Source information:
Shown here is a 95-nucleotide RNA sequence from Paspalum vaginatum, a member of the family "Small nucleolar RNA Z118/Z121/Z120". It is annotated as a C/D-box small nucleolar RNA. Its family is annotated with RNA processing and nucleolus in the Gene Ontology. For this family Rfam cites "The high diversity of snoRNAs in plants: identification and comparative study of 120 snoRNA genes from Oryza sativa" (Chen et al., Nucleic Acids Res, 2003). A search with the family's covariance model found it, with a score of 71 bits. The family's consensus secondary structure was predicted with PFOLD.

[Rfam]
RNA sequence: GGGUUGCUGUGAUGACGUUACAAGGACGGUAUAUGAGUGAGGCAUCUAUCCUCACGUGAUUAUACCUGAUCUGAGACAAAGUGUCUGAGCAAAUU
Numbered sequence: 001g002g003g004u005u006g007c008u009g010u011g012a013u014g015a016c017g018u019u020a021c022a023a024g025g026a027c028g029g030u031a032u033a034u035g036a037g038u039g040a041g042g043c044a045u046c047u048a049u050c051c052u053c054a055c056g057u058g059a060u061u062a063u064a065c066c067u068g069a070u071c072u073g074a075g076a077c078a079a080a081g082u083g084u085c086u087g088a089g090c091a092a093a094u095u
Base pairs, nucleotide, nucleotide: 001095002094004092005091006090007089037055038054039053040052041051042050